[Rfam]
RNA sequence: UCAGUGUUACACCGCUGCUGCAAGCAGCAUCCCAUGUUGCCACGACCUUCAAGGCAACGCGCAGGACCAACCUGUGUGGUCGACUCCCAACCCGUGCCGCUACCAGUUUGCGGGUGAUCGCUGUGGCGAUGGUAGC
Numbered sequence: 001u002c003a004g005u006g007u008u009a010c011a012c013c014g015c016u017g018c019u020g021c022a023a024g025c026a027g028c029a030u031c032c033c034a035u036g037u038u039g040c041c042a043c044g045a046c047c048u049u050c051a052a053g054g055c056a057a058c059g060c061g062c063a064g065g066a067c068c069a070a071c072c073u074g075u076g077u078g079g080u081c082g083a084c085u086c087c088c089a090a091c092c093c094g095u096g097c098c099g100c101u102a103c104c105a106g107u108u109u110g111c112g113g114g115u116g117a118u119c120g121c122u123g124u125g126g127c128g129a130u131g132g133u134a135g136c
Base pairs, nucleotide, nucleotide: 014028015027016026017025018024019023036058037057038056039055040054041053044081045080046079047078059077060076061075062074063073064072065071110136111135117130118129119128120127121126
RNA: radC RNA